RNA sequence: GGAUCGGGAGGCGGCCUGUGGGAAGGUUGCCGGGUAUUGAUCCGACCCCGCUGUUUCGUAAGGGCCCGUCGCCGCCGCCCACCGGCGCCGUG
Numbered sequence: 001g002g003a004u005c006g007g008g009a010g011g012c013g014g015c016c017u018g019u020g021g022g023a024a025g026g027u028u029g030c031c032g033g034g035u036a037u038u039g040a041u042c043c044g045a046c047c048c049c050g051c052u053g054u055u056u057c058g059u060a061a062g063g064g065c066c067c068g069u070c071g072c073c074g075c076c077g078c079c080c081a082c083c084g085g086c087g088c089c090g091u092g
Base pairs, nucleotide, nucleotide: 001043002042003041004040005039010031011030012029013028014027015026016025017024065092067090068089070087071086072085073084074083
Dot-bracket structure: (((((....((((((((......)))))))).......))))).....................(.((.(((((........))))).)).)
About this RNA:
Shown here is a 92-nucleotide RNA from Oceaniovalibus sp. ACAM 378, a member of the family "Rhodo-rpoB RNA". By type it is a cis-regulatory element. Lineage of the source: Bacteria > Pseudomonadati > Pseudomonadota > Roseobacteraceae > Oceaniovalibus. The base pairs follow the family's consensus structure, which is taken from published work.